[Rfam]
RNA sequence: CAUCCCUAUGAAGAAUGAAAAUUGAAAGUAGUGGACUGAUAUCCAUUGAUGACUAACCAAUUCUGAGGGAUG
Dot-bracket structure: ((((((............................................................))))))
Rfam assigns this 72-nucleotide sequence from Nyssa sinensis to the family "Small nucleolar RNA R21".
NCBI's taxonomy places the organism under Eukaryota, Viridiplantae, Streptophytina, Embryophyta, Nyssa.
The family's RNA type in Rfam is C/D-box small nucleolar RNA.
For this family Rfam cites "Identification of 66 box C/D snoRNAs in Arabidopsis thaliana: extensive gene duplications generated multiple isoforms predicting new ribosomal RNA 2'-O-methylation sites" (Barneche et al., J Mol Biol, 2001).
The match comes from Rfam's covariance-model search (75 bits).